This 83-nucleotide RNA sequence from Macleaya cordata belongs to the Rfam family "Small nucleolar RNA R11/Z151". It is annotated as a C/D-box small nucleolar RNA. Lineage of the source: Eukaryota > Streptophyta > Tracheophyta > Euphyllophyta > Macleaya. Rfam links the family to the GO terms RNA processing and nucleolus. On this family, see Barneche et al., J Mol Biol 2001: "Identification of 66 box C/D snoRNAs in Arabidopsis thaliana: extensive gene duplications generated multiple isoforms predicting new ribosomal RNA 2'-O-methylation sites".
RNA sequence: GGGCUGAUGAUGAUAAUUUUAUUAUCUUAGCGGAUUUCAGUGAGAUUUUAUCUAUGAUCUGAUUGUUACACACACUGAAGCCU
Dot-bracket structure: (((((.........................................................................)))))